[Rfam]
RNA sequence: UAUCCUUCAUUCCACCGGAGUCUGUAACUGUUUUUAACCAGAUUUCAGUGGUGUGAAGUGUAAGAG
Numbered sequence: 001u002a003u004c005c006u007u008c009a010u011u012c013c014a015c016c017g018g019a020g021u022c023u024g025u026a027a028c029u030g031u032u033u034u035u036a037a038c039c040a041g042a043u044u045u046c047a048g049u050g051g052u053g054u055g056a057a058g059u060g061u062a063a064g065a066g
Stems, first nucleotide, its partner, number of pairs: 005058006013050003017046004022041003

Annotation: mir-205 microRNA precursor family: a 66-nucleotide RNA from Tetraodon nigroviridis. Rfam 15.1 lists 1,154 matches to the family in 646 species. Taxonomically the source falls in Tetraodon (Eukaryota, Craniata, Teleostomi, Eurypterygia). Pairs were carried over by alignment from the consensus structure, which was predicted with RNAalifold.